This 59-nucleotide RNA sequence from Nesterenkonia cremea belongs to the Rfam family "msiK RNA". It is annotated as a cis-regulatory element.
RNA sequence: CAUAACCACUUUUCACUACGGAUCGUCGGGCACGUACCUGCCCGUGAAAGGGACAUAUU
Number, nucleotide and partner (000 for none) at each position: 001c000002a000003u000004a000005a000006c000007c000008a000009c051010u050011u049012u048013u047014c046015a045016c000017u000018a000019c000020g000021g000022a000023u000024c000025g000026u000027c044028g043029g042030g041031c040032a039033c000034g000035u000036a000037c000038c000039u032040g031041c030042c029043c028044g027045u015046g014047a013048a012049a011050g010051g009052g000053a000054c000055a000056u000057a000058u000059u000
The family's consensus secondary structure is taken from published work. The organism belongs to Nesterenkonia, within Bacteria.